[Rfam]
RNA: Alphaproteobacteria transfer-messenger RNA
Organism: Candidatus Mesenet longicola
RNA sequence: UAUAUUGACAUAAAGAACUAAAUAAGAUAUAAUAAGAUCGUAUUUUAUAAGAAUACUAUAGCAAUAAAAGCACUUUAUAAUAGGUGUAAUGGACCCGAGGGCAGUUCUCGGCGUCUCCACCACUUUUGUAUGGGGACGAGGUAGGAUCGACAUGCAUAGUAAAAAAAGUAGCCAUUGCUCGGGAAGAUAUCUCCGUAAGAAUUCACAUUUUAAGUGCAAACGAUAAUGUUGCAAGUGAAGGAAGUGAGUCUGCAGUUGCUGCAUAAUUCAGCACAAUAGACUUAUUACUUUACACGGUUUUAGGGAAAGCACCGGGUAACAGAAGUCUUUCCC
Numbered sequence: 001u002a003u004a005u006u007g008a009c010a011u012a013a014a015g016a017a018c019u020a021a022a023u024a025a026g027a028u029a030u031a032a033u034a035a036g037a038u039c040g041u042a043u044u045u046u047a048u049a050a051g052a053a054u055a056c057u058a059u060a061g062c063a064a065u066a067a068a069a070g071c072a073c074u075u076u077a078u079a080a081u082a083g084g085u086g087u088a089a090u091g092g093a094c095c096c097g098a099g100g101g102c103a104g105u106u107c108u109c110g111g112c113g114u115c116u117c118c119a120c121c122a123c124u125u126u127u128g129u130a131u132g133g134g135g136a137c138g139a140g141g142u143a144g145g146a147u148c149g150a151c152a153u154g155c156a157u158a159g160u161a162a163a164a165a166a167a168g169u170a171g172c173c174a175u176u177g178c179u180c181g182g183g184a185a186g187a188u189a190u191c192u193c194c195g196u197a198a199g200a201a202u203u204c205a206c207a208u209u210u211u212a213a214g215u216g217c218a219a220a221c222g223a224u225a226a227u228g229u230u231g232c233a234a235g236u237g238a239a240g241g242a243a244g245u246g247a248g249u250c251u252g253c254a255g256u257u258g259c260u261g262c263a264u265a266a267u268u269c270a271g272c273a274c275a276a277u278a279g280a281c282u283u284a285u286u287a288c289u290u291u292a293c294a295c296g297g298u299u300u301u302a303g304g305g306a307a308a309g310c311a312c313c314g315g316g317u318a319a320c321a322g323a324a325g326u327c328u329u330u331c332c333c
Stems, first nucleotide, its partner, number of pairs: 040056005060179005070172002073168004085156003089153003095111005112138007180195004186204002189202002295314004305330003309326002